RNA sequence: GGGGUUGUACUGGUUUCGACGGGGAUUUUGAAACCCGAGCAGCUAUCCGUGGACCAGGACCACGUUAAAACUUGGAAUUAAAUAUAAACGCUGAAGAUAAUUUAGCAUACGCUGCCUAAUGGCAGCUGUUCUAUCCGGCGGACCUGCACGUCGGAAUAGGGCAUCGACUCUGCAGGAAACGAUGUAUACAAAGAUUUGAGUAUAUAGGCGUAUUAUGAAUCUACUGAAGCAGGCAGGCUGUCAGUUGCCGGUCCGUGGAGGGAAUGUCAAAUAACUGACUGUGAUAGGAGAUACUCAGGUGGAUAGAUUUUCGGACAGGGGUUCGAUUCCCCUCAGCUCCAUAU
Numbered sequence: 001g002g003g004g005u006u007g008u009a010c011u012g013g014u015u016u017c018g019a020c021g022g023g024g025a026u027u028u029u030g031a032a033a034c035c036c037g038a039g040c041a042g043c044u045a046u047c048c049g050u051g052g053a054c055c056a057g058g059a060c061c062a063c064g065u066u067a068a069a070a071c072u073u074g075g076a077a078u079u080a081a082a083u084a085u086a087a088a089c090g091c092u093g094a095a096g097a098u099a100a101u102u103u104a105g106c107a108u109a110c111g112c113u114g115c116c117u118a119a120u121g122g123c124a125g126c127u128g129u130u131c132u133a134u135c136c137g138g139c140g141g142a143c144c145u146g147c148a149c150g151u152c153g154g155a156a157u158a159g160g161g162c163a164u165c166g167a168c169u170c171u172g173c174a175g176g177a178a179a180c181g182a183u184g185u186a187u188a189c190a191a192a193g194a195u196u197u198g199a200g201u202a203u204a205u206a207g208g209c210g211u212a213u214u215a216u217g218a219a220u221c222u223a224c225u226g227a228a229g230c231a232g233g234c235a236g237g238c239u240g241u242c243a244g245u246u247g248c249c250g251g252u253c254c255g256u257g258g259a260g261g262g263a264a265u266g267u268c269a270a271a272u273a274a275c276u277g278a279c280u281g282u283g284a285u286a287g288g289a290g291a292u293a294c295u296c297a298g299g300u301g302g303a304u305a306g307a308u309u310u311u312c313g314g315a316c317a318g319g320g321g322u323u324c325g326a327u328u329c330c331c332c333u334c335a336g337c338u339c340c341a342u343a344u
Base pairs, nucleotide, nucleotide: 001340002339003338004337005336006335007334020313021312022311023310024309025308026307027306028305035299037296038295039294041292043287044286045285046284047283048064049063050062051061052060054075055074056073057072058071111126112125113124114123115122127163128162129161130160131159132158134155135154136153137152138151139150140149143176144175145174146173147172182205183204184203185202186201187200193222196219197218224261225260229256230255232253233252236249237248238247240279241278242277243276245273317333318332319331320330321329
RNA: transfer-messenger RNA